[Rfam]
Nucleotides: 086
Stems, first nucleotide, its partner, number of pairs: 002085021024063007033054001035053001
Number, partner (000 for none) and nucleotide at each position: 001000c002085c003084a004083a005082g006081g007080g008079c009078u010077u011076g012075u013074u014073c015072a016071a017070c018069a019068g020067c021066u022065g023000a024063g025062u026061g027060a028059u029058u030057u031000c032000u033054a034000a035053g036000c037000a038000a039000u040000c041000a042000a043000a044000u045000u046000c047000c048000u049000u050000u051000a052000a053035c054033u055000c056000u057030g058029a059028a060027u061026c062025a063024u064000g065022c066021a067020g068019c069018u070017g071016u072015u073014g074013a075012a076011c077010a078009a079008g080007u081006u082005u083004u084003u085002g086000c

A member of the RNA family "mir-1781 microRNA precursor family" from Indicator maculatus, 86 nucleotides long. The source organism's lineage runs through Eukaryota, Sauria, Archosauria, Piciformes and Indicator. Rfam links the family to the GO terms miRNA-mediated post-transcriptional gene silencing and RISC complex. The family has 2 seed sequences and 312 matches in Rfam 15.1.